Rfam assigns this 252-nucleotide RNA sequence from Ureibacillus massiliensis to the family "BsrG".
Pairs were carried over by alignment from the consensus structure, which was predicted with WAR.
The match comes from Rfam's covariance-model search (95 bits).
Rfam's curators write: bsrE, bsrG and bsrH pair through intermolecular interactions with antisense sRNAs. They form type I toxin/antitoxin system that includes an mRNA encoding for a short, toxic peptide (bsrE, bsrG and bsrH) and an antitoxin that is comprised of an antisense RNA. bsrG encodes a 39-amino-acid toxin, and the 180 nucleotide antisense sRNA called SR4 acts as the antitoxin (they overlap by 123 nucleotides). SR4 interaction with the 3'UTR of bsrG RNA promotes bsrG degradation and inhibits its translation. BsrG interferes with cell envelope biosynthesis, causes membrane invaginations and delocalisation of the cell wall synthesis and initiates autolysis. bsrE RNA encodes 30 amino-acid toxin peptide.
Taxonomically the source falls in Ureibacillus massiliensis (Bacteria, Bacillati, Bacilli, Caryophanaceae).
[Rfam]
RNA sequence: UGUAAUAGUUUGGUAGCUCGAGGGUGGUUGGCUACUCCCCACGUUUGAAAGGGGGUGGUCCUGUGACAGUAUUUGAAACACUAAUGUUUGCAGUCGCAUUCGCAGCAUUGAUUGUAUCAAUACUAUCAUCAAACCAUAAAAAAUAACCCAUCCUUGAGUUAACGGCUCAGAUGGGUUAUCGAUACCUAAUGCAGCCAAUCCCCUUGUAGGGACCGACUAUUAUAUUGACCGCUUGAUGUUACAGCAUCAAGU
Numbered sequence: 001u002g003u004a005a006u007a008g009u010u011u012g013g014u015a016g017c018u019c020g021a022g023g024g025u026g027g028u029u030g031g032c033u034a035c036u037c038c039c040c041a042c043g044u045u046u047g048a049a050a051g052g053g054g055g056u057g058g059u060c061c062u063g064u065g066a067c068a069g070u071a072u073u074u075g076a077a078a079c080a081c082u083a084a085u086g087u088u089u090g091c092a093g094u095c096g097c098a099u100u101c102g103c104a105g106c107a108u109u110g111a112u113u114g115u116a117u118c119a120a121u122a123c124u125a126u127c128a129u130c131a132a133a134c135c136a137u138a139a140a141a142a143a144u145a146a147c148c149c150a151u152c153c154u155u156g157a158g159u160u161a162a163c164g165g166c167u168c169a170g171a172u173g174g175g176u177u178a179u180c181g182a183u184a185c186c187u188a189a190u191g192c193a194g195c196c197a198a199u200c201c202c203c204u205u206g207u208a209g210g211g212a213c214c215g216a217c218u219a220u221u222a223u224a225u226u227g228a229c230c231g232c233u234u235g236a237u238g239u240u241a242c243a244g245c246a247u248c249a250a251g252u
Base pairs, nucleotide, nucleotide: 001224002223003222004221006219007218008217010198011197012196013195014194017158018157019156020155021154022153023152024151026148027147028146029145033058037055038054039053040052065127066126068124069123070122071121104117170180199212200211201210202209231252232251233250234249235248236247237246238245239244